[Rfam]
RNA sequence: GCAUAACUUGUUAAUUUGUAUAACUAAAAAUAUGCAAAUAGUAUAGAAAGCUAAUACGUAUAAGCUUCGAAAUUACCUUUCGACUGAAGAGGACCUUUAUUGGUCCUAUAACGGCCUGAGAUAGAGGGGUUUUAGUCGGUAGGUCCGAGGACUUCGUCCUCGGGAAUCCGACACUACCCACUCGUACGGACGCCUGGGUGUCUUUUGAAGAUUGCCCUUCUUCCACGAAA
Numbered sequence: 001g002c003a004u005a006a007c008u009u010g011u012u013a014a015u016u017u018g019u020a021u022a023a024c025u026a027a028a029a030a031u032a033u034g035c036a037a038a039u040a041g042u043a044u045a046g047a048a049a050g051c052u053a054a055u056a057c058g059u060a061u062a063a064g065c066u067u068c069g070a071a072a073u074u075a076c077c078u079u080u081c082g083a084c085u086g087a088a089g090a091g092g093a094c095c096u097u098u099a100u101u102g103g104u105c106c107u108a109u110a111a112c113g114g115c116c117u118g119a120g121a122u123a124g125a126g127g128g129g130u131u132u133u134a135g136u137c138g139g140u141a142g143g144u145c146c147g148a149g150g151a152c153u154u155c156g157u158c159c160u161c162g163g164g165a166a167u168c169c170g171a172c173a174c175u176a177c178c179c180a181c182u183c184g185u186a187c188g189g190a191c192g193c194c195u196g197g198g199u200g201u202c203u204u205u206u207g208a209a210g211a212u213u214g215c216c217c218u219u220c221u222u223c224c225a226c227g228a229a230a
Stems, first nucleotide, its partner, number of pairs: 066229004123221002126217003135172005144164009174200001176199005

Shown here is a 230-nucleotide sequence from Agrilus planipennis, a member of the family "R2 RNA element". This family represents the 3' UTR region of the R2 retrotransposable element. This family is known to interact with the R2-encoded reverse transcriptase in a reaction known as target primed reverse transcription (TPRT). Taxonomically the source falls in Agrilus (Eukaryota, Pancrustacea, Allotriocarida, Dicondylia). Its family is annotated with regulation of reverse transcription in the Gene Ontology. A search with the family's covariance model found it, with a score of 49 bits.